[Rfam]
RNA sequence: AACUUAAUGAUGAUUGUCUAUUUGAUUGCUUGAUGCAAUGUGAAAACCACAUUUCACCGGCUCUGAGAGUU
Numbered sequence: 001a002a003c004u005u006a007a008u009g010a011u012g013a014u015u016g017u018c019u020a021u022u023u024g025a026u027u028g029c030u031u032g033a034u035g036c037a038a039u040g041u042g043a044a045a046a047c048c049a050c051a052u053u054u055c056a057c058c059g060g061c062u063c064u065g066a067g068a069g070u071u
Base pairs, nucleotide, nucleotide: 001071002070003069004068005067

The record is a 71-nucleotide RNA sequence from Rattus norvegicus, which matches "Small nucleolar RNA SNORD102" in Rfam. By type it is a C/D-box small nucleolar RNA. The literature on the family includes a 2003 paper in Nucleic Acids Res by Vitali et al., "Identification of 13 novel human modification guide RNAs". NCBI's taxonomy places the organism under Eukaryota, Chordata, Amniota, Euarchontoglires, Rattus. Rfam's curators put it in the seed alignment.